[Rfam]
RNA sequence: AGUCCCCACACACUUCACCCGUGUUGGCAGGAGCGGGGGACCCGCCAGGUACGACUGCCUGUCUUGGUCUCCGAGACAGGCUCGGGGUGCAGCCGUGCCCUUGCACGGCCGGGCAGCUCCAGCCCGAACCCGACAGCUCACCUCGCAGGCGCCGGAGAGGAAUGCG
Numbered sequence: 001a002g003u004c005c006c007c008a009c010a011c012a013c014u015u016c017a018c019c020c021g022u023g024u025u026g027g028c029a030g031g032a033g034c035g036g037g038g039g040a041c042c043c044g045c046c047a048g049g050u051a052c053g054a055c056u057g058c059c060u061g062u063c064u065u066g067g068u069c070u071c072c073g074a075g076a077c078a079g080g081c082u083c084g085g086g087g088u089g090c091a092g093c094c095g096u097g098c099c100c101u102u103g104c105a106c107g108g109c110c111g112g113g114c115a116g117c118u119c120c121a122g123c124c125c126g127a128a129c130c131c132g133a134c135a136g137c138u139c140a141c142c143u144c145g146c147a148g149g150c151g152c153c154g155g156a157g158a159g160g161a162a163u164g165c166g
Base pairs, nucleotide, nucleotide: 003032004031005030033146034145035144036143037142038141043084044083085131086130087129093108094107095106096105111125112124113123114122
Rfam assigns this 166-nucleotide sequence from Streptomyces cellostaticus to the family "c-di-AMP riboswitch aptamer (ydaO/yuaA leader)". It scores 65 bits against the family's covariance model. Its family is annotated with cyclic-di-AMP binding and regulation of gene expression in the Gene Ontology. NCBI's taxonomy places the organism under Bacteria, Actinomycetota, Actinomycetes, Kitasatosporales, Streptomyces.